Shown here is a 79-nucleotide RNA sequence from Streptomyces sp. Ru87, a member of the family "nrdJ RNA". The family's RNA type in Rfam is small RNA. A search with the family's covariance model found it, with a score of 62 bits.

RNA sequence: ACCCGCCCGGCGCGCACCGCGUGCCCGGGCAGCAGAACAGACACCGUGCCGAGGGAAGAACUGGGCACAUCAGGGCGUU
Numbered sequence: 001a002c003c004c005g006c007c008c009g010g011c012g013c014g015c016a017c018c019g020c021g022u023g024c025c026c027g028g029g030c031a032g033c034a035g036a037a038c039a040g041a042c043a044c045c046g047u048g049c050c051g052a053g054g055g056a057a058g059a060a061c062u063g064g065g066c067a068c069a070u071c072a073g074g075g076c077g078u079u
Stems, first nucleotide, its partner, number of pairs: 005030006012024004046068005052062002